Annotation
The family of this 175-nucleotide sequence from Ramlibacter algicola is "Manganese Mn2+ riboswitch aptamer (yybP-ykoY)". Lineage of the source: Bacteria > Pseudomonadati > Betaproteobacteria > Comamonadaceae > Ramlibacter. Its family is annotated with manganese ion binding in the Gene Ontology.

RNA sequence: CGCGCUGUCAUUGGGGAGUAGCCUCCCUGCAUCCCAGGGGCUGGCGUCAACAGACUUGGACCUCGCGUCCAUGGCGCCCGCGACUCCGGUUUGGCGAGACCUUUGACUGCGCAGCCCCGUGUUCCUGGCCGGGCGGCCGCGCAGUCAUUGGUGCGUCCACGCCCGGCCGGAGAUC
Number, nucleotide and partner (000 for none) at each position: 001c000002g000003c000004g000005c000006u000007g000008u000009c000010a000011u000012u000013g000014g000015g000016g000017a000018g000019u000020a000021g000022c000023c000024u000025c000026c038027c037028u036029g000030c000031a000032u000033c000034c000035c000036a028037g027038g026039g000040g081041c080042u000043g078044g077045c076046g075047u074048c073049a072050a000051c000052a000053g000054a000055c000056u000057u071058g070059g069060a068061c067062c000063u000064c000065g000066c000067g061068u060069c059070c058071a057072u049073g048074g047075c046076g045077c044078c043079c000080g041081c040082g174083a000084c172085u171086c170087c169088g168089g167090u166091u000092u000093g000094g000095c000096g000097a000098g000099a000100c000101c000102u000103u000104u000105g000106a000107c000108u000109g000110c000111g000112c000113a000114g000115c000116c000117c000118c000119g000120u000121g000122u000123u000124c000125c000126u000127g000128g000129c000130c000131g000132g000133g000134c000135g000136g000137c000138c000139g000140c000141g000142c000143a000144g000145u000146c000147a000148u000149u000150g000151g000152u000153g000154c000155g000156u000157c000158c000159a000160c000161g000162c000163c000164c000165g000166g090167c089168c088169g087170g086171a085172g084173a000174u082175c000